[Rfam]
RNA sequence: UUUUUCUUUGAUACGAAUGCAUUCUAUUCACUGCACCAUUUAAAUCAUUGAAUGAAGUGGAGGGGAAAAGAAUGCUAGAGGAAUAUAUCGAAAUACGUCCUCAUACUAAAUAUGCUGUAUUUGAAUUGAGUUAGCAUAAUUGGAUUCUGCGUUUUCGAAACAUCU
Numbered sequence: 001u002u003u004u005u006c007u008u009u010g011a012u013a014c015g016a017a018u019g020c021a022u023u024c025u026a027u028u029c030a031c032u033g034c035a036c037c038a039u040u041u042a043a044a045u046c047a048u049u050g051a052a053u054g055a056a057g058u059g060g061a062g063g064g065g066a067a068a069a070g071a072a073u074g075c076u077a078g079a080g081g082a083a084u085a086u087a088u089c090g091a092a093a094u095a096c097g098u099c100c101u102c103a104u105a106c107u108a109a110a111u112a113u114g115c116u117g118u119a120u121u122u123g124a125a126u127u128g129a130g131u132u133a134g135c136a137u138a139a140u141u142g143g144a145u146u147c148u149g150c151g152u153u154u155u156c157g158a159a160a161c162a163u164c165u
Base pairs, nucleotide, nucleotide: 019075020074022072023071031062032061034059035058037054038053039052040051041050089157090156091155095152096151097150106143107142108141111138112137113136114135115134116133121130122129
RNA: Small nucleolar RNA snR8
Organism: Insectozyma verbasci